A member of the RNA family "c-di-GMP-I riboswitch aptamer" from Mangrovibacillus cuniculi, 85 nucleotides long. Rfam describes the family as follows. GEMM was predicted in a large-scale screen for bacterial structured RNA regulatory elements. It scores 64 bits against the family's covariance model. Pairs were carried over by alignment from the consensus structure, which is taken from published work. Gene Ontology term of the family: cyclic-di-GMP binding. Lineage of the source: Bacteria > Bacillota > Bacilli > Caryophanales > Mangrovibacillus.
RNA sequence: UGUGGAUAUUGGCAUACUUUUUGAAAGGGAAGGACGCAAAACUAAAGGGGCUACGGUUUUCGAACUACGCCAGCCAGUUGCUUAC
Number, nucleotide and partner (000 for none) at each position: 001u000002g000003u000004g000005g000006a000007u000008a000009u000010u000011g000012g037013c036014a000015u000016a000017c032018u031019u030020u029021u028022u027023g000024a000025a000026a000027g022028g021029g020030a019031a018032g017033g000034a000035c000036g013037c012038a000039a000040a079041a078042c077043u076044a000045a000046a000047g075048g074049g071050g070051c069052u000053a000054c000055g000056g065057u064058u063059u000060u000061c000062g000063a058064a057065c056066u000067a000068c000069g051070c050071c049072a000073g000074c048075c047076a043077g042078u041079u040080g000081c000082u000083u000084a000085c000